[Rfam]
RNA: c-di-AMP riboswitch aptamer (ydaO/yuaA leader)
Organism: Actinomyces sp. HMT897
RNA sequence: UGUUCUCGUCACCCUGACUCUUCAAUCCGGCAGGUCCGGGGGACCCAACUUCCGGCCAGGUGGCCCACAAGGCUGCUUGGUCUUGGGGUGAAGCCCGCGACAGCGGGCCGAGCGUCUCCAGCUCGAACCCGACAGCUCACCUCGGCGGCUACCAAGGAGAAACUA
Numbered sequence: 001u002g003u004u005c006u007c008g009u010c011a012c013c014c015u016g017a018c019u020c021u022u023c024a025a026u027c028c029g030g031c032a033g034g035u036c037c038g039g040g041g042g043a044c045c046c047a048a049c050u051u052c053c054g055g056c057c058a059g060g061u062g063g064c065c066c067a068c069a070a071g072g073c074u075g076c077u078u079g080g081u082c083u084u085g086g087g088g089u090g091a092a093g094c095c096c097g098c099g100a101c102a103g104c105g106g107g108c109c110g111a112g113c114g115u116c117u118c119c120a121g122c123u124c125g126a127a128c129c130c131g132a133c134a135g136c137u138c139a140c141c142u143c144g145g146c147g148g149c150u151a152c153c154a155a156g157g158a159g160a161a162a163c164u165a
Base pairs, nucleotide, nucleotide: 011150013148014147019034020033036145037144038143039142040141041140046085047084086130087129088128094107095106096105097104110124111123112122113121